[Rfam]
RNA sequence: UAUGAAUGCUAAAGACUGGAAGACAUGAGAAUUAAAAAUCAUGUCUUGAAGAGAACAGUAUAAG
Numbered sequence: 001u002a003u004g005a006a007u008g009c010u011a012a013a014g015a016c017u018g019g020a021a022g023a024c025a026u027g028a029g030a031a032u033u034a035a036a037a038a039u040c041a042u043g044u045c046u047u048g049a050a051g052a053g054a055a056c057a058g059u060a061u062a063a064g
Base pairs, nucleotide, nucleotide: 007060008059009058010057016051017050020047021046022045023044024043025042026041027040028039
The record is a 64-nucleotide RNA from Nematostella vectensis, which matches "mir-9412 microRNA precursor family" in Rfam. Pairs were carried over by alignment from the consensus structure, which was predicted with RNAalifold. Rfam links the family to the GO terms miRNA-mediated post-transcriptional gene silencing and RISC complex. A search with the family's covariance model found it, with a score of 89 bits. The source organism's lineage runs through Eukaryota, Cnidaria, Anthozoa, Edwardsiidae and Nematostella.